Rfam assigns this 119-nucleotide sequence from Moellerella wisconsensis to the family "tp2". The family's consensus secondary structure was predicted with RNAalifold. The family's RNA type in Rfam is small RNA. Taxonomically the source falls in Moellerella wisconsensis (Bacteria, Pseudomonadota, Gammaproteobacteria, Enterobacterales). For this family Rfam cites "Computational identification of noncoding RNAs in E. coli by comparative genomics" (Rivas et al., Curr Biol, 2001).
[Rfam]
RNA sequence: UGUAUUCCUUAUCUGUUAUUUGUUUUAAUGUUUAAUGGAGCCUAUCUUCUCGUGGUUCUCUACAAUAUAAAACACGAGAAGAUAGGCCCUGCUGUUUUGUUGCUGCUUAUGCUCUAAUG
Numbered sequence: 001u002g003u004a005u006u007c008c009u010u011a012u013c014u015g016u017u018a019u020u021u022g023u024u025u026u027a028a029u030g031u032u033u034a035a036u037g038g039a040g041c042c043u044a045u046c047u048u049c050u051c052g053u054g055g056u057u058c059u060c061u062a063c064a065a066u067a068u069a070a071a072a073c074a075c076g077a078g079a080a081g082a083u084a085g086g087c088c089c090u091g092c093u094g095u096u097u098u099g100u101u102g103c104u105g106c107u108u109a110u111g112c113u114c115u116a117a118u119g
Base pairs, nucleotide, nucleotide: 002103003102004101022092023091037090038089040087041086042085043084044083045082046081049078050077051076052075053074056071057070